[Rfam]
Hepatitis delta virus ribozyme: a 91-nucleotide sequence from Daletvirus boae. About the family: The hepatitis delta virus (HDV) ribozyme is necessary for viral replication and is thought to be the only catalytic RNA known to be required for viability of a human pathogen. The source organism's lineage runs through Viruses, Ribozyviria, Kolmioviridae, Daletvirus and Daletvirus boae. The base pairs follow the family's consensus structure, which is taken from published work.

RNA sequence: GUGGGCGAGCACGGUUCCCGCCUCCACGCGGCCUCGCCCGGGCAACUAUUCUCCAGGAUCUCGGUCCAGGGGAAUAGGCGAAGGGGAACCC
Numbered sequence: 001g002u003g004g005g006c007g008a009g010c011a012c013g014g015u016u017c018c019c020g021c022c023u024c025c026a027c028g029c030g031g032c033c034u035c036g037c038c039c040g041g042g043c044a045a046c047u048a049u050u051c052u053c054c055a056g057g058a059u060c061u062c063g064g065u066c067c068a069g070g071g072g073a074a075u076a077g078g079c080g081a082a083g084g085g086g087a088a089c090c091c
Base pairs, nucleotide, nucleotide: 003039004038005037006036007035008034009033015086017085018084019083020032021031022030024041025040046077047076048075049074050072051071052070053069056067057066058065060064

A search with the family's covariance model found it, with a score of 54 bits.